This 127-nucleotide RNA sequence from Pipistrellus kuhlii belongs to the Rfam family "mir-9193 microRNA precursor family".

[Rfam]
Nucleotides: 127
Stems, first nucleotide, its partner, number of pairs: 003125002006122001008120003012116014027101008
Number, partner (000 for none) and nucleotide at each position: 001000u002000g003125u004124g005000c006122a007000c008120c009119a010118g011000u012116g013115g014114g015113g016112u017111c018110c019109c020108u021107u022106g023105g024104c025103c026000u027101g028100g029099c030098c031097u032096g033095c034094g035000g036000g037000g038000a039000u040000u041000g042000u043000g044000c045000c046000g047000a048000a049000a050000c051000u052000g053000g054000c055000u056000c057000u058000c059000c060000g061000a062000c063000a064000u065000u066000c067000c068000c069000u070000g071000a072000g073000g074000g075000g076000u077000c078000c079000u080000g081000g082000a083000u084000u085000g086000u087000g088000a089000g090000a091000g092000g093000g094034u095033g096032c097031a098030g099029g100028c101027c102000a103025g104024g105023c106022c107021a108020a109019g110018g111017g112016a113015c114014c115013c116012c117000a118010c119009u120008g121000g122006u123000g124004c125003a126000c127000a
A search with the family's covariance model found it, with a score of 57 bits. Gene Ontology terms of the family: miRNA-mediated post-transcriptional gene silencing and RISC complex. Lineage of the source: Eukaryota > Bilateria > Dipnotetrapodomorpha > Boreoeutheria > Pipistrellus.